[Rfam]
RNA sequence: GAAACGACGGUUCUCCGAGCUUUCUCUCCUACGUCCACAGAUAGGGAGAUUAAGCCGUGGCAAUAGUGCCACCGGGGUGAGGAAAGAAAUUGACUCACCUCCCCUUACUUGGAAAGGUGAUCAUGUCUCAACUAC
Numbered sequence: 001g002a003a004a005c006g007a008c009g010g011u012u013c014u015c016c017g018a019g020c021u022u023u024c025u026c027u028c029c030u031a032c033g034u035c036c037a038c039a040g041a042u043a044g045g046g047a048g049a050u051u052a053a054g055c056c057g058u059g060g061c062a063a064u065a066g067u068g069c070c071a072c073c074g075g076g077g078u079g080a081g082g083a084a085a086g087a088a089a090u091u092g093a094c095u096c097a098c099c100u101c102c103c104c105u106u107a108c109u110u111g112g113a114a115a116g117g118u119g120a121u122c123a124u125g126u127c128u129c130a131a132c133u134a135c
Stems, first nucleotide, its partner, number of pairs: 004128001006126001012120002015117002019055004025049005033042003057072005075100007084091002101112002
Dot-bracket structure: ...(.(.....((.((..((((..(((((...(((....)))..)))))..)))).(((((......)))))..(((((((..((....))..)))))))((........))...)).)).....).).......